[Rfam]
RNA: Glycine riboswitch aptamer
Organism: Bilophila wadsworthia
RNA sequence: GUAAGUGCUGCGAGAGAGAUUCCGCUUCCCUAUGGGGAGGCGGAAGCACCGAAGGGGCAACGCCGGAAGGCCGAAACUCUCAGGUCCCAGAAUCGCGCAUCUUCG
Numbered sequence: 001g002u003a004a005g006u007g008c009u010g011c012g013a014g015a016g017a018g019a020u021u022c023c024g025c026u027u028c029c030c031u032a033u034g035g036g037g038a039g040g041c042g043g044a045a046g047c048a049c050c051g052a053a054g055g056g057g058c059a060a061c062g063c064c065g066g067a068a069g070g071c072c073g074a075a076a077c078u079c080u081c082a083g084g085u086c087c088c089a090g091a092a093u094c095g096c097g098c099a100u101c102u103u104c105g
Stems, first nucleotide, its partner, number of pairs: 009097005020046002023043001048085003051081002055079003062071001